[Rfam]
RNA sequence: AAGCAUGUGAUGAAUUACUCGGAUUCCCCUUCAGGACUUUUUGGAUGAUGCAGAUUCGAGUUUCUGAUGCU
Number, nucleotide and partner (000 for none) at each position: 001a000002a071003g070004c069005a068006u000007g000008u000009g000010a000011u000012g000013a000014a000015u000016u000017a000018c000019u000020c000021g000022g000023a000024u000025u000026c000027c000028c000029c000030u000031u000032c000033a000034g000035g000036a000037c000038u000039u000040u000041u000042u000043g000044g000045a000046u000047g000048a000049u000050g000051c000052a000053g000054a000055u000056u000057c000058g000059a000060g000061u000062u000063u000064c000065u000066g000067a000068u005069g004070c003071u002
This 71-nucleotide RNA sequence from Macleaya cordata belongs to the Rfam family "Small nucleolar RNA snoR60". The literature on the family includes a 2000 paper in J Biol Chem by Barneche et al., "Fibrillarin genes encode both a conserved nucleolar protein and a novel small nucleolar RNA involved in ribosomal RNA methylation in Arabidopsis thaliana". Its Rfam clan is "SNORD101 clan". The family has 10 seed sequences and 1,133 matches in Rfam 15.1.